[Rfam]
RNA sequence: UUUGGGACAUGAUGAAAGAUAUGAAUGAUUUCAGAGACUGUUUCCCAAGAGAAUCAGCGGCUCCGUGCUGAAUCAUUUGCACGUCAGUCUGAUCCCAAA
Numbered sequence: 001u002u003u004g005g006g007a008c009a010u011g012a013u014g015a016a017a018g019a020u021a022u023g024a025a026u027g028a029u030u031u032c033a034g035a036g037a038c039u040g041u042u043u044c045c046c047a048a049g050a051g052a053a054u055c056a057g058c059g060g061c062u063c064c065g066u067g068c069u070g071a072a073u074c075a076u077u078u079g080c081a082c083g084u085c086a087g088u089c090u091g092a093u094c095c096c097a098a099a
Stems, first nucleotide, its partner, number of pairs: 001099007
A member of the RNA family "Small nucleolar RNA Z122" from Musa troglodytarum, 99 nucleotides long. NCBI's taxonomy places the organism under Eukaryota, Embryophyta, Tracheophyta, Petrosaviidae, Musa. Rfam links the family to the GO terms nucleolus and RNA processing. It is annotated as a C/D-box small nucleolar RNA. The base pairs follow the family's consensus structure, which was predicted with PFOLD.